[Rfam]
RNA sequence: UGUGAAAGGAUGAAAAAAAUCAGACGGAUUCCCAAUGAGUAUCCAUGAUAUCACAACCAGCUACUUCUGAUCACA
Numbered sequence: 001u002g003u004g005a006a007a008g009g010a011u012g013a014a015a016a017a018a019a020u021c022a023g024a025c026g027g028a029u030u031c032c033c034a035a036u037g038a039g040u041a042u043c044c045a046u047g048a049u050a051u052c053a054c055a056a057c058c059a060g061c062u063a064c065u066u067c068u069g070a071u072c073a074c075a
Stems, first nucleotide, its partner, number of pairs: 001075005